A member of the RNA family "Mahella-1 RNA", 117 nucleotides long. The base pairs follow the family's consensus structure, which is taken from published work. It is annotated as a small RNA.
RNA sequence: GCCGGGCUGCUGUAAAAAUGCAAACCAAUGCAUUUUUCCCCUGGAAAGGGGUUGGCAGCAAGCGGUAUCAUGCAAAAUGCAGGGAUACCGCAGAAGUGCCAGCAUAUAGCUGGUAAA
Numbered sequence: 001g002c003c004g005g006g007c008u009g010c011u012g013u014a015a016a017a018a019u020g021c022a023a024a025c026c027a028a029u030g031c032a033u034u035u036u037u038c039c040c041c042u043g044g045a046a047a048g049g050g051g052u053u054g055g056c057a058g059c060a061a062g063c064g065g066u067a068u069c070a071u072g073c074a075a076a077a078u079g080c081a082g083g084g085a086u087a088c089c090g091c092a093g094a095a096g097u098g099c100c101a102g103c104a105u106a107u108a109g110c111u112g113g114u115a116a117a
Base pairs, nucleotide, nucleotide: 034048035047036046037045038044039043062091063090064089065088066087067086068085069084071081072080073079098114099113100112101111102110